Manganese Mn2+ riboswitch aptamer (yybP-ykoY): a 114-nucleotide sequence from Marinobacterium lacunae.
The literature on the family includes a 2001 paper in Curr Biol by Argaman et al., "Novel small RNA-encoding genes in the intergenic regions of Escherichia coli".
Pairs were carried over by alignment from the consensus structure.
Rfam's curators write: This RNA was originally discovered in E. coli during a large scale screen and was named SraF. The family was later found to exist upstream of related families of protein genes in many bacteria, including the the yybP and ykoK genes in B. subtilis. The specific functions of these proteins are unknown, but this structured RNA element may be involved in their genetic regulation as a riboswitch.
[Rfam]
RNA sequence: CCGCCCUGCUCUUGGGGGAGUAGUCUUCCGCAUCCGAUAAAUUCGGAUCGGAGUUACCGUCAACAUAAUUGAGCCUCAAUGCUCAUGGCGGUGACGUCCACGCAAACGUGGAUU
Numbered sequence: 001c002c003g004c005c006c007u008g009c010u011c012u013u014g015g016g017g018g019a020g021u022a023g024u025c026u027u028c029c030g031c032a033u034c035c036g037a038u039a040a041a042u043u044c045g046g047a048u049c050g051g052a053g054u055u056a057c058c059g060u061c062a063a064c065a066u067a068a069u070u071g072a073g074c075c076u077c078a079a080u081g082c083u084c085a086u087g088g089c090g091g092u093g094a095c096g097u098c099c100a101c102g103c104a105a106a107c108g109u110g111g112a113u114u
Base pairs, nucleotide, nucleotide: 028051029050030049053095054094055093056092057091058090059089060088061087062086070085071084072083073082074081096113097112098111099110100109101108102107